[Rfam]
Nucleotides: 172
Base pairs, nucleotide, nucleotide: 028047029046030045031044032043033042049062050061051060052059053058092127093126094125095124096123097122098121099120105116106115107114108113130165131164132163133162134161135160136158137157138156139155140154
Number, partner (000 for none) and nucleotide at each position: 001000c002000u003000a004000a005000c006000u007000u008000g009000c010000c011000u012000u013000u014000g015000c016000a017000g018000u019000a020000u021000c022000u023000g024000u025000u026000c027000u028047u029046u030045u031044c032043a033042g034000u035000u036000u037000a038000a039000u040000c041000u042033c043032u044031g045030a046029a047028a048000c049062g050061u051060g052059u053058c054000u055000a056000c057000g058053g059052a060051c061050a062049c063000a064000u065000u066000c067000a068000a069000g070000a071000u072000u073000a074000u075000u076000c077000u078000u079000a080000u081000u082000u083000u084000u085000g086000c087000a088000a089000c090000c091000c092127g093126u094125c095124c096123g097122g098121a099120g100000g101000c102000c103000g104000c105116u106115g107114a108113g109000c110000u111000u112000g113108c114107u115106c116105a117000u118000g119000u120099c121098u122097c123096u124095g125094g126093g127092c128000a129000c130165c131164g132163u133162g134161u135160c136158g137157c138156u139155g140154g141000u142000a143000u144000u145000g146000c147000a148000c149000u150000g151000c152000c153000u154140c155139c156138a157137g158136c159000u160135g161134a162133c163132g164131c165130g166000a167000a168000c169000c170000u171000c172000c